[Rfam]
RNA sequence: UGCAUGUAUUUUACAAUUAAGAAGUAAUUGUCUCUUGUGCAGAUUGUUUAUUAAUCU
Numbered sequence: 001u002g003c004a005u006g007u008a009u010u011u012u013a014c015a016a017u018u019a020a021g022a023a024g025u026a027a028u029u030g031u032c033u034c035u036u037g038u039g040c041a042g043a044u045u046g047u048u049u050a051u052u053a054a055u056c057u
Base pairs, nucleotide, nucleotide: 018037019036020035021034022033024031025030